The record is a 139-nucleotide RNA from Oryza sativa, which matches "Small nucleolar RNA Z247" in Rfam. The source organism's lineage runs through Eukaryota, Tracheophyta, Petrosaviidae, Oryzinae and Oryza sativa.

[Rfam]
RNA sequence: CCCCUUGAUGAUGAAGAGAUGAUCCAGUACAUCAUAACUGGAUUGGGAGAAGGCUACAGUGAGGUUGUUUCAGCCGUGUGCGCACGGGUUGAACCAAUCUCGGUGGGAGAACUAUACUCGCAAGUCCUGAAUUUUGAAG
Dot-bracket structure: ....((((.....................................................................................((.((....)).))..........................))))..